[Rfam]
RNA sequence: CCGCAUCAUCAAGAGAAGGGCUGGCGCCCUCGCCAACCUGCCGACCGGGCAAGGUGGUCCCCGCAAGGGAUGUGAUCAGGAUGGUUCCUGAUAACCAAGCGGCUUUCU
Numbered sequence: 001c002c003g004c005a006u007c008a009u010c011a012a013g014a015g016a017a018g019g020g021c022u023g024g025c026g027c028c029c030u031c032g033c034c035a036a037c038c039u040g041c042c043g044a045c046c047g048g049g050c051a052a053g054g055u056g057g058u059c060c061c062c063g064c065a066a067g068g069g070a071u072g073u074g075a076u077c078a079g080g081a082u083g084g085u086u087c088c089u090g091a092u093a094a095c096c097a098a099g100c101g102g103c104u105u106u107c108u
Stems, first nucleotide, its partner, number of pairs: 007072004015031001017030005032058003037054003040050003044104001046102001075092007

The record is a 108-nucleotide RNA sequence from Roseibium suaedae, which matches "SAM-I/IV (S-adenosyl methionine) riboswitch aptamer" in Rfam. Its Rfam clan is "SAM clan". A search with the family's covariance model found it, with a score of 59 bits. NCBI's taxonomy places the organism under Bacteria, Pseudomonadati, Pseudomonadota, Stappiaceae, Roseibium. For this family Rfam cites "The aptamer core of SAM-IV riboswitches mimics the ligand-binding site of SAM-I riboswitches" (Weinberg et al., RNA, 2008).